The record is a 157-nucleotide RNA sequence from Yersinia enterocolitica, which matches "STAXI RNA" in Rfam. Taxonomically the source falls in Yersinia enterocolitica subsp. enterocolitica (Bacteria, Pseudomonadati, Gammaproteobacteria, Yersinia enterocolitica). Pairs were carried over by alignment from the consensus structure, which is taken from published work.
RNA sequence: CGUUGUCUAUGACAACUGCCAAUGUUCCGGUGACUUGAGAGGAACGCCUUCGGGUAAUCACCUGCCAAUGCCAUCAUGACCUGAGAGAUGGCGCUUUCGAGCGGUUAACUUAAAUCUGUCAACCUUUGCAAACAGAGACCUUCGGGUUAAGGCCUAC
Numbered sequence: 001c002g003u004u005g006u007c008u009a010u011g012a013c014a015a016c017u018g019c020c021a022a023u024g025u026u027c028c029g030g031u032g033a034c035u036u037g038a039g040a041g042g043a044a045c046g047c048c049u050u051c052g053g054g055u056a057a058u059c060a061c062c063u064g065c066c067a068a069u070g071c072c073a074u075c076a077u078g079a080c081c082u083g084a085g086a087g088a089u090g091g092c093g094c095u096u097u098c099g100a101g102c103g104g105u106u107a108a109c110u111u112a113a114a115u116c117u118g119u120c121a122a123c124c125u126u127u128g129c130a131a132a133c134a135g136a137g138a139c140c141u142u143c144g145g146g147u148u149a150a151g152g153c154c155u156a157c
Stems, first nucleotide, its partner, number of pairs: 002016005024045005030061004035056001046055003070092005077107005093102003115136005123152004138147003
The family has 43 seed sequences and 130 matches in Rfam 15.1.